[Rfam]
RNA sequence: AGAGUUAGCCGCUAGGGUUCCGGCACGUGAGACGUGCGACUGGUCCGAGAGCGGCUACCGGCAGGGAGACAUCCUGCCGGGUGCACGGCGGGACAAAAGCCCGGGAGAC
Numbered sequence: 001a002g003a004g005u006u007a008g009c010c011g012c013u014a015g016g017g018u019u020c021c022g023g024c025a026c027g028u029g030a031g032a033c034g035u036g037c038g039a040c041u042g043g044u045c046c047g048a049g050a051g052c053g054g055c056u057a058c059c060g061g062c063a064g065g066g067a068g069a070c071a072u073c074c075u076g077c078c079g080g081g082u083g084c085a086c087g088g089c090g091g092g093a094c095a096a097a098a099g100c101c102c103g104g105g106a107g108a109c
Stems, first nucleotide, its partner, number of pairs: 007056006015046002020043002022040001023037006057082001058080007084104001086107001090102003
RNA: Guanidine-I riboswitch aptamer
Organism: Affinirhizobium straminoryzae